[Rfam]
RNA sequence: GGACGAGAGGAUGAUUUAUCAACAUCAAGCAUAGUUCAACAGAGGUGCUACUACACCAAUGUUGACAAACCGAUAGCAUUGUCUUUCGCUCCUAUCUGAUCACGUUC
Numbered sequence: 001g002g003a004c005g006a007g008a009g010g011a012u013g014a015u016u017u018a019u020c021a022a023c024a025u026c027a028a029g030c031a032u033a034g035u036u037c038a039a040c041a042g043a044g045g046u047g048c049u050a051c052u053a054c055a056c057c058a059a060u061g062u063u064g065a066c067a068a069a070c071c072g073a074u075a076g077c078a079u080u081g082u083c084u085u086u087c088g089c090u091c092c093u094a095u096c097u098g099a100u101c102a103c104g105u106u107c
Stems, first nucleotide, its partner, number of pairs: 001107005